RNA: mir-395 microRNA precursor family
Organism: Quercus lobata
RNA sequence: CUGUCCCCUAGAGUUCCCUCGAUCACUUCACUGGAACUAUAGUUUUAGUCCACUGAAGUGUUUGGGGGAACUCUAGUUGUCAC
Numbered sequence: 001c002u003g004u005c006c007c008c009u010a011g012a013g014u015u016c017c018c019u020c021g022a023u024c025a026c027u028u029c030a031c032u033g034g035a036a037c038u039a040u041a042g043u044u045u046u047a048g049u050c051c052a053c054u055g056a057a058g059u060g061u062u063u064g065g066g067g068g069a070a071c072u073c074u075a076g077u078u079g080u081c082a083c
Stems, first nucleotide, its partner, number of pairs: 005079001008076002011073010022063001024060007032052004
Dot-bracket structure: ....(..((.((((((((((.(.(((((((.((((.............)))).)))))))..))))))))))).))..)....